[Rfam]
RNA sequence: CGCCGUUUGUUCCCUCCCCUCACGGCAUAGGACUGGCGGGUUUU
Numbered sequence: 001c002g003c004c005g006u007u008u009g010u011u012c013c014c015u016c017c018c019c020u021c022a023c024g025g026c027a028u029a030g031g032a033c034u035g036g037c038g039g040g041u042u043u044u
Stems, first nucleotide, its partner, number of pairs: 003039004009033004018025002
Dot-bracket structure: ..((((..((((.....((....))....))))..)))).....
RNA: Xanthomonadaceae sRNA sX5
Organism: Stenotrophomonas sp. BIIR7